[Rfam]
Nucleotides: 119
Stems, first nucleotide, its partner, number of pairs: 002051002005048005014040004019035001021032001058113001060111005071098007081091001084089001
Number, partner (000 for none) and nucleotide at each position: 001000g002051u003050g004000a005048c006047c007046u008045u009044u010000u011000a012000a013000g014040g015039u016038u017037g018000a019035c020000a021032c022000a023000g024000u025000a026000c027000u028000u029000u030000a031000a032021g033000a034000g035019g036000c037017c038016a039015a040014c041000a042000c043000u044009g045008a046007a047006g048005g049000g050003u051002a052000a053000a054000g055000g056000a057000a058113g059000u060111c061110u062109c063108u064107a065000u066000a067000a068000a069000a070000c071098c072097c073096a074095g075094a076093g077092a078000a079000g080000a081091g082000a083000c084089u085000g086000u087000a088000c089084a090000u091081c092077u093076c094075u095074u096073u097072g098071g099000a100000u101000c102000c103000u104000g105000u106000c107064u108063g109062g110061a111060g112000u113058c114000g115000c116000a117000c118000u119000g
Rfam assigns this 119-nucleotide sequence from Nannospalax galili to the family "Small nucleolar RNA SNORA26".
From the family's description: The snoRNA HBI-6 belong to the H/ACA family of snoRNAs, guiding the pseudouridylation of position U4522 if the 28S rRNA. HBI-6 is the human orthologue of mouse MBI-6 snoRNA.
Clan: SNORA27 clan.
Gene Ontology terms of the family: RNA processing and nucleolus.
Rfam 15.1 lists 1,943 matches to the family in 640 species.
It is annotated as an H/ACA-box small nucleolar RNA.